[Rfam]
Background: Shown here is a 72-nucleotide sequence from Zootermopsis nevadensis, a member of the family "mir-965 microRNA precursor family". The literature on the family includes a 2012 paper in Bioorg Khim by Huang et al., "The regulation of silkworm fibroin L chain production by miRNA-965 and miRNA-1926 in insect cells". NCBI's taxonomy places the organism under Eukaryota, Arthropoda, Pancrustacea, Termitoidae, Zootermopsis.
RNA sequence: GUUCAGACGGGAGAGGCUGUAGCGAUUAUGUGCUUGUAACACUCAUAAGCGUAUAGCUUUUCCCCUUUGAAC
Numbered sequence: 001g002u003u004c005a006g007a008c009g010g011g012a013g014a015g016g017c018u019g020u021a022g023c024g025a026u027u028a029u030g031u032g033c034u035u036g037u038a039a040c041a042c043u044c045a046u047a048a049g050c051g052u053a054u055a056g057c058u059u060u061u062c063c064c065c066u067u068u069g070a071a072c
Stems, first nucleotide, its partner, number of pairs: 003070005009064003013060002017056005026048005